[Rfam]
RNA sequence: CCACCCGCGCCUCUUAACAAUGCGAAAAUAGGGUGGG
Numbered sequence: 001c002c003a004c005c006c007g008c009g010c011c012u013c014u015u016a017a018c019a020a021u022g023c024g025a026a027a028a029u030a031g032g033g034u035g036g037g
Stems, first nucleotide, its partner, number of pairs: 001036006008024003
RNA: abiF RNA
Organism: Paenibacillaceae bacterium GAS479